Shown here is a 106-nucleotide RNA, a member of the family "DUF3800-I RNA". Rfam's curators write: Actinobacteria, Firmicutes, Fusobacteria, Proteobacteria (1 example), Tenericutes (2 examples). The family's RNA type in Rfam is small RNA.
[Rfam]
RNA sequence: AUAAAAUGCAGAUAGAAUAUCUGUAUACUCAUGUUACCGAAUUAACGUUUAAGCGAUAUGUGCUAUCGCCGGACAUGAGGCCGCCUUUAAGGCGGUUUUUUUUGUA
Numbered sequence: 001a002u003a004a005a006a007u008g009c010a011g012a013u014a015g016a017a018u019a020u021c022u023g024u025a026u027a028c029u030c031a032u033g034u035u036a037c038c039g040a041a042u043u044a045a046c047g048u049u050u051a052a053g054c055g056a057u058a059u060g061u062g063c064u065a066u067c068g069c070c071g072g073a074c075a076u077g078a079g080g081c082c083g084c085c086u087u088u089a090a091g092g093c094g095g096u097u098u099u100u101u102u103u104g105u106a
Stems, first nucleotide, its partner, number of pairs: 007025008028079006037072003040049003053069006080096007